[Rfam]
RNA: Ribosomal protein L20 leader
Organism: Vagococcus fessus
RNA sequence: AGAAUUAAGCAGAAGCACCCGCUUCUCGCCUUAGUAGAUAAUAAUCUCUGGGCUAGAUAGUUUUUCUUUUAAUCUUAAGGAUUAAAAUGAAAGUAUGCGGGGGUCUUCAAAAAGAAGACUCUUUUUUUCUGUAUU
Numbered sequence: 001a002g003a004a005u006u007a008a009g010c011a012g013a014a015g016c017a018c019c020c021g022c023u024u025c026u027c028g029c030c031u032u033a034g035u036a037g038a039u040a041a042u043a044a045u046c047u048c049u050g051g052g053c054u055a056g057a058u059a060g061u062u063u064u065u066c067u068u069u070u071a072a073u074c075u076u077a078a079g080g081a082u083u084a085a086a087a088u089g090a091a092a093g094u095a096u097g098c099g100g101g102g103g104u105c106u107u108c109a110a111a112a113a114g115a116a117g118a119c120u121c122u123u124u125u126u127u128u129c130u131g132u133a134u135u
Stems, first nucleotide, its partner, number of pairs: 011026006028053003036047004100122009
Dot-bracket structure: ..........((((((....)))))).(((.....((((....))))...)))..............................................(((((((((.....))))))))).............